[Rfam]
RNA: Small nucleolar RNA SNORA33
RNA sequence: AAGCCAGUCAAUGAAUUUGCUUAUUGGAUUGUUUCUGAAAAAAAAGUUGUUUUUUUUUUAACAGGCAAUAUUAAUGCCAUGAUGCCAGCCUUCAUGAUACUGGGGUCAUUAAGGUCCCUGAAAGUGGCUAUAUGA
Numbered sequence: 001a002a003g004c005c006a007g008u009c010a011a012u013g014a015a016u017u018u019g020c021u022u023a024u025u026g027g028a029u030u031g032u033u034u035c036u037g038a039a040a041a042a043a044a045a046g047u048u049g050u051u052u053u054u055u056u057u058u059u060a061a062c063a064g065g066c067a068a069u070a071u072u073a074a075u076g077c078c079a080u081g082a083u084g085c086c087a088g089c090c091u092u093c094a095u096g097a098u099a100c101u102g103g104g105g106u107c108a109u110u111a112a113g114g115u116c117c118c119u120g121a122a123a124g125u126g127g128c129u130a131u132a133u134g135a
Stems, first nucleotide, its partner, number of pairs: 003066003007062001016041003020037001076128004088115005094109001096107003